[Rfam]
RNA sequence: UGUACCAAGCAAGCUUUUUGCUUGAAUUAUGUGCCUUUCCUGAAAUAUAAGACGAGCAAAAAGUGUGUUUGUUGCAAG
Numbered sequence: 001u002g003u004a005c006c007a008a009g010c011a012a013g014c015u016u017u018u019u020g021c022u023u024g025a026a027u028u029a030u031g032u033g034c035c036u037u038u039c040c041u042g043a044a045a046u047a048u049a050a051g052a053c054g055a056g057c058a059a060a061a062a063g064u065g066u067g068u069u070u071g072u073u074g075c076a077a078g
Stems, first nucleotide, its partner, number of pairs: 003074002006071001008069002011066001013064006020057001023054002027050006